[Rfam]
RNA sequence: AGUACGUGGCGAGGCAGUGACCCCCGGAGUACCACGGUCACCGUUCCCGGAACCUCGGGAGCACUCCGGGACGAGCCAGUGGUGAGACCGACGCCCCGGAAC
Numbered sequence: 001a002g003u004a005c006g007u008g009g010c011g012a013g014g015c016a017g018u019g020a021c022c023c024c025c026g027g028a029g030u031a032c033c034a035c036g037g038u039c040a041c042c043g044u045u046c047c048c049g050g051a052a053c054c055u056c057g058g059g060a061g062c063a064c065u066c067c068g069g070g071a072c073g074a075g076c077c078a079g080u081g082g083u084g085a086g087a088c089c090g091a092c093g094c095c096c097c098g099g100a101a102c
Stems, first nucleotide, its partner, number of pairs: 003100001005098002008095004013077003023070007036089002038085005
This 102-nucleotide RNA belongs to the Rfam family "c-di-GMP-II-GAG riboswitch aptamer". Rfam's curators put it in the seed alignment. The base pairs follow the family's consensus structure, which is taken from published work. Its Rfam clan is "c-di-GMP_II riboswitch clan".